Rfam assigns this 79-nucleotide sequence from Lepisosteus oculatus to the family "mir-17 microRNA precursor family". Rfam 15.1 lists 4,687 matches to the family in 648 species. A search with the family's covariance model found it, with a score of 57 bits. Rfam links the family to the GO terms RISC complex and miRNA-mediated post-transcriptional gene silencing. From the family's description: This family represents the microRNA (miRNA) precursor mir-17, family, which includes mir-20, mir-91, and mir-103. miRNAs are transcribed as ~70nt precursors (modelled here) and subsequently processed by the Dicer enzyme to give a ~22nt product. In this case the mature sequence comes from the 3' arm of the precursor.

RNA sequence: CCUGGGUGCCCAAAGUGCUGUUUGUGCAGGUAGCUAACCUGAGAGCCUACUGCAAAACCAGCACUUCCCGACACACAGA
Dot-bracket structure: ...(.((..(..((((((((.((.(((.(((((.............)))))))).)).))))))))...)..)).)...